This 33-nucleotide RNA sequence from Moschus moschiferus belongs to the Rfam family "Iron response element I". A search with the family's covariance model found it, with a score of 41 bits. Rfam classes the family as a cis-regulatory element. Lineage of the source: Eukaryota > Eumetazoa > Gnathostomata > Tetrapoda > Moschus. Its family is annotated with response to iron ion in the Gene Ontology.
RNA sequence: UCUCUUGCUUCAACAGUGUUUGGACGGAACCGA
Numbered sequence: 001u002c003u004c005u006u007g008c009u010u011c012a013a014c015a016g017u018g019u020u021u022g023g024a025c026g027g028a029a030c031c032g033a
Stems, first nucleotide, its partner, number of pairs: 001029001003028003007025001009024005014018001